[Rfam]
RNA: MIR8008 microRNA precursor family
Organism: Solanum commersonii
RNA sequence: AAACCCAGAAAAGCGAUGGACAGGGUCCUUUUGUCCGUCACUUUUCUGGGAUUUU
Numbered sequence: 001a002a003a004c005c006c007a008g009a010a011a012a013g014c015g016a017u018g019g020a021c022a023g024g025g026u027c028c029u030u031u032u033g034u035c036c037g038u039c040a041c042u043u044u045u046c047u048g049g050g051a052u053u054u055u
Stems, first nucleotide, its partner, number of pairs: 001053002004050010015039007